[Rfam]
RAGATH-27 RNA: an 86-nucleotide sequence. Rfam classes the family as a small RNA.
RNA sequence: UUCAUUGCUUAUCGAAAAUCACUGAACUAUAAUCCUUUAGUCUUUCAGUCAGCAUAGAGUAAAGUAAAAAAAUAAACAAGCUGGCC
Numbered sequence: 001u002u003c004a005u006u007g008c009u010u011a012u013c014g015a016a017a018a019u020c021a022c023u024g025a026a027c028u029a030u031a032a033u034c035c036u037u038u039a040g041u042c043u044u045u046c047a048g049u050c051a052g053c054a055u056a057g058a059g060u061a062a063a064g065u066a067a068a069a070a071a072a073u074a075a076a077c078a079a080g081c082u083g084g085c086c
Stems, first nucleotide, its partner, number of pairs: 035064003039060001041058003048085006
The base pairs follow the family's consensus structure, which is taken from published work.